[Rfam]
RNA sequence: CUCCGCUCUUCCCGCACAGAAGAGCGGCCGAGGAGCCGGUGCUCUCUGCCCUGACCGCGCCGGGCACUCCUCAAUCGGUGGCCGGUACCGCACAUUCUGGCCGCCGAUGCACCUGAAGGGCCGCGGUGUUGGGGUCGGGUUGAGGGUCCCGCCCCGGCGC
Number, nucleotide and partner (000 for none) at each position: 001c000002u000003c027004c026005g025006c000007u023008c022009u021010u020011c019012c000013c000014g000015c000016a000017c000018a000019g011020a010021a009022g008023a007024g000025c005026g004027g003028c000029c000030g069031a068032g067033g000034a000035g000036c063037c062038g061039g060040u000041g058042c057043u054044c053045u000046c000047u000048g000049c000050c000051c000052u000053g044054a043055c000056c000057g042058c041059g000060c039061c038062g037063g036064g000065c000066a000067c032068u031069c030070c000071u000072c000073a000074a000075u107076c106077g105078g104079u103080g102081g101082c000083c000084g097085g096086u000087a000088c000089c000090g000091c000092a000093c000094a000095u000096u085097c084098u000099g000100g000101c081102c080103g079104c078105c077106g076107a075108u000109g000110c128111a127112c126113c125114u000115g000116a000117a000118g122119g000120g000121c000122c118123g000124c000125g113126g112127u111128g110129u000130u000131g154132g153133g152134g000135u000136c151137g150138g149139g148140u000141u000142g000143a000144g000145g000146g000147u000148c139149c138150c137151g136152c133153c132154c131155c000156g000157g000158c000159g000160c000

Shown here is a 160-nucleotide RNA sequence from Streptomyces alboflavus, a member of the family "Streptomyces sRNA scr5239". Taxonomically the source falls in Streptomyces (Bacteria, Bacillati, Actinomycetota, Streptomycetaceae). By type it is a small RNA. The base pairs follow the family's consensus structure, which is taken from published work. For this family Rfam cites "Identification of metE as a second target of the sRNA scr5239 in Streptomyces coelicolor" (Vockenhuber et al., PLoS One, 2015). Rfam links the family to the GO terms mRNA binding and negative regulation of translation.